mir-1421 microRNA precursor family: a 74-nucleotide RNA sequence from Ornithorhynchus anatinus. Gene Ontology terms of the family: miRNA-mediated post-transcriptional gene silencing and RISC complex.

[Rfam]
RNA sequence: UGGCGUGUGGAGGUUACACAUCAUGCCGUGUGAUGCUGGAAUACGCUGCAUAGUGGGUGAUCUUCUUAUCCAGU
Numbered sequence: 001u002g003g004c005g006u007g008u009g010g011a012g013g014u015u016a017c018a019c020a021u022c023a024u025g026c027c028g029u030g031u032g033a034u035g036c037u038g039g040a041a042u043a044c045g046c047u048g049c050a051u052a053g054u055g056g057g058u059g060a061u062c063u064u065c066u067u068a069u070c071c072a073g074u
Stems, first nucleotide, its partner, number of pairs: 003071001005069003009065009019055003023051004